[Rfam]
RNA sequence: AGAGGUUACAAAUUUGAGGCCCUAGCUGAAGCACUUGUGGUGUGGCCCUGUCAGAUUCCAAUGAAUCUGUGAAUUCUGCU
Numbered sequence: 001a002g003a004g005g006u007u008a009c010a011a012a013u014u015u016g017a018g019g020c021c022c023u024a025g026c027u028g029a030a031g032c033a034c035u036u037g038u039g040g041u042g043u044g045g046c047c048c049u050g051u052c053a054g055a056u057u058c059c060a061a062u063g064a065a066u067c068u069g070u071g072a073a074u075u076c077u078g079c080u
Stems, first nucleotide, its partner, number of pairs: 016048001018047004024080003028076003031043003052069007
Shown here is an 80-nucleotide RNA sequence from Alligator mississippiensis, a member of the family "Mammalian CPEB3 ribozyme". Taxonomically the source falls in Alligator (Eukaryota, Sarcopterygii, Amniota, Crocodylia). Pairs were carried over by alignment from the consensus structure, which is taken from published work.